[Rfam]
RNA sequence: UAGUUUUCUCCUAAGUCAAACUUUUCAAACUUUGGCCAAAUUUAUAGAAAAAUACACCAACAUCUACAACAUCAAAUUAGUUUCGUUAAAUCCAUCAUGAAAUAUGUCUUGGUAGUGUAUUUAUCUGUUGGGAGAUAUUGCAAUUUGCCCCAUUGUAGAUAUUGGUGCAUUUUUCUAUAAAUUCGAUCAAAGUUAGAGAAGUUUGACUUAGAAUAAAACUAA
Numbered sequence: 001u002a003g004u005u006u007u008c009u010c011c012u013a014a015g016u017c018a019a020a021c022u023u024u025u026c027a028a029a030c031u032u033u034g035g036c037c038a039a040a041u042u043u044a045u046a047g048a049a050a051a052a053u054a055c056a057c058c059a060a061c062a063u064c065u066a067c068a069a070c071a072u073c074a075a076a077u078u079a080g081u082u083u084c085g086u087u088a089a090a091u092c093c094a095u096c097a098u099g100a101a102a103u104a105u106g107u108c109u110u111g112g113u114a115g116u117g118u119a120u121u122u123a124u125c126u127g128u129u130g131g132g133a134g135a136u137a138u139u140g141c142a143a144u145u146u147g148c149c150c151c152a153u154u155g156u157a158g159a160u161a162u163u164g165g166u167g168c169a170u171u172u173u174u175c176u177a178u179a180a181a182u183u184c185g186a187u188c189a190a191a192g193u194u195a196g197a198g199a200a201g202u203u204u205g206a207c208u209u210a211g212a213a214u215a216a217a218a219c220u221a222a
Stems, first nucleotide, its partner, number of pairs: 005217003009213001011211016031191005045177008055167003059163002062160007073147005
Record summary: The family of this 222-nucleotide RNA sequence from Oryza meyeriana is "MIR1435 microRNA precursor family". The source organism's lineage runs through Eukaryota, Streptophyta, commelinids, Poaceae and Oryza meyeriana. A search with the family's covariance model found it, with a score of 97 bits. Rfam links the family to the GO terms miRNA-mediated post-transcriptional gene silencing and RISC complex. Rfam 15.1 lists 1,765 matches to the family in 31 species.